[Rfam]
RNA sequence: CACCGUGGACGACCCCGGUGCAGACCCAAAUACAGCGGGACGGCCCGC
Dot-bracket structure: (((((.((....)).)))))..............(((((....)))))
Record summary
A member of the RNA family "Guanidine-II riboswitch aptamer (mini-ykkC)" from Pseudomonas sp. GV071, 48 nucleotides long. The source organism's lineage runs through Bacteria, Pseudomonadati, Pseudomonadota, Gammaproteobacteria and Pseudomonas. A search with the family's covariance model found it, with a score of 43 bits.